[Rfam]
RNA sequence: CUCCAUGUGUUUUGGGGACCUGUCAGCUGUGGCAGUCUCCCUUCCUAGCCAUGGACGGGCAUAUUCUUAUUUAUUGGCAAAGUUGUCACCAUUUAAUUGGUAUCAGAUUCAGACUUGCACAAGUGACAUUC
Numbered sequence: 001c002u003c004c005a006u007g008u009g010u011u012u013u014g015g016g017g018a019c020c021u022g023u024c025a026g027c028u029g030u031g032g033c034a035g036u037c038u039c040c041c042u043u044c045c046u047a048g049c050c051a052u053g054g055a056c057g058g059g060c061a062u063a064u065u066c067u068u069a070u071u072u073a074u075u076g077g078c079a080a081a082g083u084u085g086u087c088a089c090c091a092u093u094u095a096a097u098u099g100g101u102a103u104c105a106g107a108u109u110c111a112g113a114c115u116u117g118c119a120c121a122a123g124u125g126a127c128a129u130u131c
Stems, first nucleotide, its partner, number of pairs: 002055006015041004020035005068128001070126002074122003077118004083106003088101004
Dot-bracket structure: .((((((.......((((.(((((......)))))..))))........))))))............(.((..(((((((..(((..((((......))))..)))........)))).)))..)).)...
Shown here is a 131-nucleotide RNA sequence from Tupaia belangeri, a member of the family "Small nucleolar RNA SNORA24". Rfam 15.1 lists 852 matches to the family in 501 species. Rfam describes the family as follows. ACA24 is a member of the H/ACA class of snoRNA that guide the sites of modification of uridines to pseudouridines. Pairs were carried over by alignment from the consensus structure, which was predicted with RNAfold.